[Rfam]
RNA sequence: GGUUUAAUUACCCAAGUUUGAGGUAAUUGAUGUUUCGGCCCAGAGUUUAGGCUACUGUGGCUUGAAGUAAAAUUUUGGAACGUCCUGCAUAUUUCCCACAAA
Numbered sequence: 001g002g003u004u005u006a007a008u009u010a011c012c013c014a015a016g017u018u019u020g021a022g023g024u025a026a027u028u029g030a031u032g033u034u035u036c037g038g039c040c041c042a043g044a045g046u047u048u049a050g051g052c053u054a055c056u057g058u059g060g061c062u063u064g065a066a067g068u069a070a071a072a073u074u075u076u077g078g079a080a081c082g083u084c085c086u087g088c089a090u091a092u093u094u095c096c097c098a099c100a101a102a
Stems, first nucleotide, its partner, number of pairs: 004030009033067004038061003082099002
The family of this 102-nucleotide RNA from Brugia malayi is "SL1 RNA". This family represents the SL1 RNA. SL1 is commonly located in the spacer region between 5S-rRNA genes where it is involved in trans-splicing. Trans-splicing is a form of RNA processing.